The family of this 77-nucleotide RNA sequence from Streptomyces morookaense is "nrdJ RNA".
Taxonomically the source falls in Streptomyces (Bacteria, Bacillati, Actinomycetes, Kitasatosporales).
Rfam classes the family as a small RNA.
[Rfam]
RNA sequence: ACCUGCCCGGAACGCUCGGCGUUCCCGGGUGACAGACACACAUCGCGCCACGGAAGAAAUGGGCGCAUGAGGGCGUU
Dot-bracket structure: ...(((((((.((((...))))..))))))).............((((((.........).)))))...........
Numbered sequence: 001a002c003c004u005g006c007c008c009g010g011a012a013c014g015c016u017c018g019g020c021g022u023u024c025c026c027g028g029g030u031g032a033c034a035g036a037c038a039c040a041c042a043u044c045g046c047g048c049c050a051c052g053g054a055a056g057a058a059a060u061g062g063g064c065g066c067a068u069g070a071g072g073g074c075g076u077u
Stems, first nucleotide, its partner, number of pairs: 004031007012022004045066005050060001